[Rfam]
RNA sequence: UAUAGAAAUGGAAAUGAAGUUCUUCCAUGAAAUUAUUCAAAACCGCUAAAAGCUGAUGACUUCUGCAUACGC
Numbered sequence: 001u002a003u004a005g006a007a008a009u010g011g012a013a014a015u016g017a018a019g020u021u022c023u024u025c026c027a028u029g030a031a032a033u034u035a036u037u038c039a040a041a042a043c044c045g046c047u048a049a050a051a052g053c054u055g056a057u058g059a060c061u062u063c064u065g066c067a068u069a070c071g072c
Base pairs, nucleotide, nucleotide: 010026011025012024013023016063017062018061019060020059021058045053046052
Rfam assigns this 72-nucleotide RNA sequence from Anaerococcus nagyae to the family "Fluoride riboswitch aptamer (crcB RNA motif)". The base pairs follow the family's consensus structure, which is taken from published work. The organism belongs to Anaerococcus, within Bacteria.